[Rfam]
RNA sequence: ACUUUCACGUUUGAGAAGGAAUAGUAGAAGUACGGUGGGACUUUUAGAGAGUGCAUGGUUGGUGGAAAUGCACAGCACACCUUUCGAACUCGUCUUCGAGUGAUAUCUGACUGAACCUGAUUUGGCUAGGCAGAUACGGCGAUGGCCGUUAAAACAUCGAGGUCUGCUUUUUUGAGGAGCAGAUAAACUUAGGUGGUACCACGUUGAUAACGUCCUAUAA
Numbered sequence: 001a002c003u004u005u006c007a008c009g010u011u012u013g014a015g016a017a018g019g020a021a022u023a024g025u026a027g028a029a030g031u032a033c034g035g036u037g038g039g040a041c042u043u044u045u046a047g048a049g050a051g052u053g054c055a056u057g058g059u060u061g062g063u064g065g066a067a068a069u070g071c072a073c074a075g076c077a078c079a080c081c082u083u084u085c086g087a088a089c090u091c092g093u094c095u096u097c098g099a100g101u102g103a104u105a106u107c108u109g110a111c112u113g114a115a116c117c118u119g120a121u122u123u124g125g126c127u128a129g130g131c132a133g134a135u136a137c138g139g140c141g142a143u144g145g146c147c148g149u150u151a152a153a154a155c156a157u158c159g160a161g162g163u164c165u166g167c168u169u170u171u172u173u174g175a176g177g178a179g180c181a182g183a184u185a186a187a188c189u190u191a192g193g194u195g196g197u198a199c200c201a202c203g204u205u206g207a208u209a210a211c212g213u214c215c216u217a218u219a220a
Stems, first nucleotide, its partner, number of pairs: 007101002016096004027085004041075002051073006105135005111129003137148003162184009190217004201213005

This 220-nucleotide RNA sequence from Enterococcus casseliflavus belongs to the Rfam family "T-box leader". NCBI's taxonomy places the organism under Bacteria, Bacillati, Enterococcaceae, Enterococcus, Enterococcus casseliflavus. It is annotated as a cis-regulatory leader. Its family is annotated with tRNA binding in the Gene Ontology. Rfam's curators write: Uncharged tRNA acts as the effector for transcription antitermination of genes in the T-box leader family.